[Rfam]
RNA: Ribosomal protein L10 leader
Organism: Cetobacterium sp. 2A
RNA sequence: AUUAAAUAUAGAUCCAAACCAAAGACCGUAGGUGGCCUAGGCUUUAAAUACCCUACCGAGGUUGGAAGAAGGUAUUCGCUAGCCUCAUUAGAGUAGUAACAGAAACCUCCGUUCCAAUUCUUUGGACCGGAGGUAAUUUUUAAGUUGA
Dot-bracket structure: ...........................(((((.(((....)))........))))).................................................((((((.(((((....))))).))))))...............